[Rfam]
RNA: Plant signal recognition particle RNA
RNA sequence: GCCGAGCUGAGUUACGCCAGCUUAUGACCCAAGUGGGGGCUGUGAGUGAUUGGAAUGAAUUGGUUGGAUUUAAAGGCGUGGAUCAUCUUUGCGAUUGUCGGUCUGCCCGUUCCAAGUUGAUGGUGGGCCGGAAGAGUUGUGCGAAGGCUCGAUUUGACCGGUUCUUAAAGAGGAGGGUACUGGGCCAGGCUGGUUUCACAGAGCAGUCAUUUCCCAUCCUCCUUCAACAGUGGAAGGACAACAGAUCGGUGUGCAAUUUGCCCACAAGGUUCCUCUAGAUCCGAUUCAAUUCUAACUAAUCAUUUU
Numbered sequence: 001g002c003c004g005a006g007c008u009g010a011g012u013u014a015c016g017c018c019a020g021c022u023u024a025u026g027a028c029c030c031a032a033g034u035g036g037g038g039g040c041u042g043u044g045a046g047u048g049a050u051u052g053g054a055a056u057g058a059a060u061u062g063g064u065u066g067g068a069u070u071u072a073a074a075g076g077c078g079u080g081g082a083u084c085a086u087c088u089u090u091g092c093g094a095u096u097g098u099c100g101g102u103c104u105g106c107c108c109g110u111u112c113c114a115a116g117u118u119g120a121u122g123g124u125g126g127g128c129c130g131g132a133a134g135a136g137u138u139g140u141g142c143g144a145a146g147g148c149u150c151g152a153u154u155u156g157a158c159c160g161g162u163u164c165u166u167a168a169a170g171a172g173g174a175g176g177g178u179a180c181u182g183g184g185c186c187a188g189g190c191u192g193g194u195u196u197c198a199c200a201g202a203g204c205a206g207u208c209a210u211u212u213c214c215c216a217u218c219c220u221c222c223u224u225c226a227a228c229a230g231u232g233g234a235a236g237g238a239c240a241a242c243a244g245a246u247c248g249g250u251g252u253g254c255a256a257u258u259u260g261c262c263c264a265c266a267a268g269g270u271u272c273c274u275c276u277a278g279a280u281c282c283g284a285u286u287c288a289a290u291u292c293u294a295a296c297u298a299a300u301c302a303u304u305u306u
Base pairs, nucleotide, nucleotide: 001040002039003038004023005022006021007020008019009018028037029036030035044305045304046303047302048301049300050299051298052297053296057292059290060289061288062286063285064284065283066282067281070278071277072276074274075273076272078270079269080263081262083260085258089255091254092253093252098249099248100247101246102245103244104243105242107237108236110235111234112233113232114231116228117227118226119225120224122222123221125164126163127162128161129160130159131158134155135154136153137152138151139150141148142147165170172218173217175214176213177212183208184207185206190201191200192199